This 87-nucleotide sequence from Roseicyclus persicicus belongs to the Rfam family "Glycine riboswitch aptamer". Rfam's curators write: This family represents the bacterial glycine riboswitch. It scores 57 bits against the family's covariance model. Its Rfam clan is "Glycine riboswitch clan".
RNA sequence: CCAGCCGUCCCGCGAGAGGCCGACCACCGUCGGCGCCGAAGGAGCAACCCCCCGGAACCUCUCAGGCAAAAGGACCGGGACGCGCAG
Numbered sequence: 001c002c003a004g005c006c007g008u009c010c011c012g013c014g015a016g017a018g019g020c021c022g023a024c025c026a027c028c029g030u031c032g033g034c035g036c037c038g039a040a041g042g043a044g045c046a047a048c049c050c051c052c053c054g055g056a057a058c059c060u061c062u063c064a065g066g067c068a069a070a071a072g073g074a075c076c077g078g079g080a081c082g083c084g085c086a087g
Stems, first nucleotide, its partner, number of pairs: 006082007020033004035067003038063002042061003048055002